[Rfam]
About this RNA: A member of the RNA family "MIR807 microRNA precursor family" from Oryza nivara, 176 nucleotides long. A search with the family's covariance model found it, with a score of 130 bits.

RNA sequence: AACCAUACUAUUGAUGAAUGAAUUUACCCGUGAGAUGACGUGGUUGUUCCAUAUAGGAUGAGGACGUGGUAUUCUAUUAAUUUCGUGUGAUGGCUGUUAAUACGAUGACAUGUCCUCGUCCUAGAUAAAACAGUCACAUCAUCUUGUGGGUGAAUCCAUCCAUCAAUAGUGUGAUU
Numbered sequence: 001a002a003c004c005a006u007a008c009u010a011u012u013g014a015u016g017a018a019u020g021a022a023u024u025u026a027c028c029c030g031u032g033a034g035a036u037g038a039c040g041u042g043g044u045u046g047u048u049c050c051a052u053a054u055a056g057g058a059u060g061a062g063g064a065c066g067u068g069g070u071a072u073u074c075u076a077u078u079a080a081u082u083u084c085g086u087g088u089g090a091u092g093g094c095u096g097u098u099a100a101u102a103c104g105a106u107g108a109c110a111u112g113u114c115c116u117c118g119u120c121c122u123a124g125a126u127a128a129a130a131c132a133g134u135c136a137c138a139u140c141a142u143c144u145u146g147u148g149g150g151u152g153a154a155u156c157c158a159u160c161c162a163u164c165a166a167u168a169g170u171g172u173g174a175u176u
Stems, first nucleotide, its partner, number of pairs: 001176002004173004009168007018159002022155007030147004035142004041136008051126002054123002057120002063114003070107004075102007
Dot-bracket structure: ((.((((.(((((((..((..(((((((.((((.((((..((((((((..((.((.((....(((....((((.(((((((..............))))))).))))....)))....)).)).))..))))))))..)))).)))).)))))))..))..))))))).)))).))